A member of the RNA family "Bacterial RNase P class A" from Calothrix sp., 457 nucleotides long.
[Rfam]
RNA sequence: GAGAGUAGGCGUAGGCGGUUGCAGAUCAGUCACAAAAACUGAAUUUGAGGAAAGUCCGGGCUCCCGAAAGACCAAACUUGCUGGAUAACGUCCAGUGCGAGCGAUCGUGAGGAUAGUGCCACAGAAAGAUACCGCCAAUUAGUCAUUAGUCAUUUGUCAUUAGUCAUUUGGAAAAACACAAAGGACAAAGGACAAAGAACAAAUGACCAAAUUGGUAAGGGUGCAAAGGUGCGGUAAGAGCGCACCAGCAACGUCGAGAGGCGUUGGCUCGGUAAACCCCGGUUGGGAGCAAGGCGAAAGGAACUAUGGUUGGUCUUUUACCAGUUCCGCUAAAACAGAGCCGCUAGAGGCGUUUGGUAACAAACGUCCCAGAUAGAUAACCGCCCUCAUGUAGAGAAGUUACUUGUAACAUUUCUACAUUCGAGAACAGAACCCGGCUUACUACCAACUCUUUCCC
Numbered sequence: 001g002a003g004a005g006u007a008g009g010c011g012u013a014g015g016c017g018g019u020u021g022c023a024g025a026u027c028a029g030u031c032a033c034a035a036a037a038a039c040u041g042a043a044u045u046u047g048a049g050g051a052a053a054g055u056c057c058g059g060g061c062u063c064c065c066g067a068a069a070g071a072c073c074a075a076a077c078u079u080g081c082u083g084g085a086u087a088a089c090g091u092c093c094a095g096u097g098c099g100a101g102c103g104a105u106c107g108u109g110a111g112g113a114u115a116g117u118g119c120c121a122c123a124g125a126a127a128g129a130u131a132c133c134g135c136c137a138a139u140u141a142g143u144c145a146u147u148a149g150u151c152a153u154u155u156g157u158c159a160u161u162a163g164u165c166a167u168u169u170g171g172a173a174a175a176a177c178a179c180a181a182a183g184g185a186c187a188a189a190g191g192a193c194a195a196a197g198a199a200c201a202a203a204u205g206a207c208c209a210a211a212u213u214g215g216u217a218a219g220g221g222u223g224c225a226a227a228g229g230u231g232c233g234g235u236a237a238g239a240g241c242g243c244a245c246c247a248g249c250a251a252c253g254u255c256g257a258g259a260g261g262c263g264u265u266g267g268c269u270c271g272g273u274a275a276a277c278c279c280c281g282g283u284u285g286g287g288a289g290c291a292a293g294g295c296g297a298a299a300g301g302a303a304c305u306a307u308g309g310u311u312g313g314u315c316u317u318u319u320a321c322c323a324g325u326u327c328c329g330c331u332a333a334a335a336c337a338g339a340g341c342c343g344c345u346a347g348a349g350g351c352g353u354u355u356g357g358u359a360a361c362a363a364a365c366g367u368c369c370c371a372g373a374u375a376g377a378u379a380a381c382c383g384c385c386c387u388c389a390u391g392u393a394g395a396g397a398a399g400u401u402a403c404u405u406g407u408a409a410c411a412u413u414u415c416u417a418c419a420u421u422c423g424a425g426a427a428c429a430g431a432a433c434c435c436g437g438c439u440u441a442c443u444a445c446c447a448a449c450u451c452u453u454u455c456c457c
Stems, first nucleotide, its partner, number of pairs: 001453006008446002011442001014385007022047005027041004052440003056437005061289004070317002075284003079281002081095005096110001097108004111279002116277002118273003132220002134216007142208001228246006248268001249266007293342003300328006308322003312318001349368008
NCBI's taxonomy places the organism under Bacteria, Cyanobacteriota, Nostocales, Calotrichaceae, Calothrix. The family's consensus secondary structure is taken from published work. Gene Ontology terms of the family: dimeric ribonuclease P complex, tRNA processing and ribonuclease P activity.